The record is a 130-nucleotide RNA sequence from Upupa epops, which matches "Small nucleolar RNA SNORA8" in Rfam.
By type it is an H/ACA-box small nucleolar RNA.
The match comes from Rfam's covariance-model search (48 bits).
Pairs were carried over by alignment from the consensus structure, which was predicted with RNAfold.

RNA sequence: UGCACUGCAUGGUGUCUGCACCCAGCAGUGUCUUCCUGAUGGGCUGUUCACAAAGCAGUUCACAGCAGCCGGCAUCGCUGGCUGCCCUGCAGCUGUGCUGGUUAAACUGGGCACUUGUGUUGAAACUAGG
Numbered sequence: 001u002g003c004a005c006u007g008c009a010u011g012g013u014g015u016c017u018g019c020a021c022c023c024a025g026c027a028g029u030g031u032c033u034u035c036c037u038g039a040u041g042g043g044c045u046g047u048u049c050a051c052a053a054a055g056c057a058g059u060u061c062a063c064a065g066c067a068g069c070c071g072g073c074a075u076c077g078c079u080g081g082c083u084g085c086c087c088u089g090c091a092g093c094u095g096u097g098c099u100g101g102u103u104a105a106a107c108u109g110g111g112c113a114c115u116u117g118u119g120u121u122g123a124a125a126c127u128a129g130g
Base pairs, nucleotide, nucleotide: 002061004059005058006057007056015054017052018047019046020045022043023042024040026038027037028036063119064118067115068114069111070110071099072098073097074096075095
Clan: SNORA8 clan. Rfam 15.1 lists 1,490 matches to the family in 610 species.